Background:
The family of this 59-nucleotide RNA from Tupaia belangeri is "mir-9/mir-79 microRNA precursor family". Rfam's curators put it in the seed alignment. A reference for the family is Sempere et al. (2003), "Temporal regulation of microRNA expression in Drosophila melanogaster mediated by hormonal signals and broad-Complex gene activity", Dev Biol. Rfam 15.1 lists 5,647 matches to the family in 934 species.
RNA sequence: UCUUUGGUUAUCUAGCUGUAUGAGUGUAUUGGUCUUCAUAAAGCUAGAUAACCGAAAGU
Numbered sequence: 001u002c003u004u005u006g007g008u009u010a011u012c013u014a015g016c017u018g019u020a021u022g023a024g025u026g027u028a029u030u031g032g033u034c035u036u037c038a039u040a041a042a043g044c045u046a047g048a049u050a051a052c053c054g055a056a057a058g059u
Stems, first nucleotide, its partner, number of pairs: 001058001003056015019040006